RNA sequence: UGACAUGAUGAGCUUACUUUAGGAAUCUCGUUCGGCUGAAUGUUGCUGUUGAGAAACGGAAUCUGAGCGUC
Numbered sequence: 001u002g003a004c005a006u007g008a009u010g011a012g013c014u015u016a017c018u019u020u021a022g023g024a025a026u027c028u029c030g031u032u033c034g035g036c037u038g039a040a041u042g043u044u045g046c047u048g049u050u051g052a053g054a055a056a057c058g059g060a061a062u063c064u065g066a067g068c069g070u071c
Stems, first nucleotide, its partner, number of pairs: 026054005033048004